[Rfam]
U1 spliceosomal RNA: a 161-nucleotide sequence from Salvelinus namaycush. By type it is a spliceosomal small nuclear RNA. The organism belongs to Salvelinus, within Eukaryota.

RNA sequence: CCACUAAGCAGAAGAGAUACCGUGAUCAAGAAGGUGGUGCACCCAGUGUGGGGCUCAGCCAUUGCACUCUGGCUGUGCUGACCCCUUGUGAAUUUUCCAAAUGUGGGAAUCUCGAUUGCAUAAUUUAUGGUAGUGGUCGUUUGUGCUUUACCCUGAUGUCU
Numbered sequence: 001c002c003a004c005u006a007a008g009c010a011g012a013a014g015a016g017a018u019a020c021c022g023u024g025a026u027c028a029a030g031a032a033g034g035u036g037g038u039g040c041a042c043c044c045a046g047u048g049u050g051g052g053g054c055u056c057a058g059c060c061a062u063u064g065c066a067c068u069c070u071g072g073c074u075g076u077g078c079u080g081a082c083c084c085c086u087u088g089u090g091a092a093u094u095u096u097c098c099a100a101a102u103g104u105g106g107g108a109a110u111c112u113c114g115a116u117u118g119c120a121u122a123a124u125u126u127a128u129g130g131u132a133g134u135g136g137u138c139g140u141u142u143g144u145g146c147u148u149u150a151c152c153c154u155g156a157u158g159u160c161u
Base pairs, nucleotide, nucleotide: 008119009118010117011116014042016040019038020037021036022035023034045087046085048083050082052079053078054077056075057074058073059072060071089114090113091112092110093109094108096106097105135161136160138158139157140156143153145151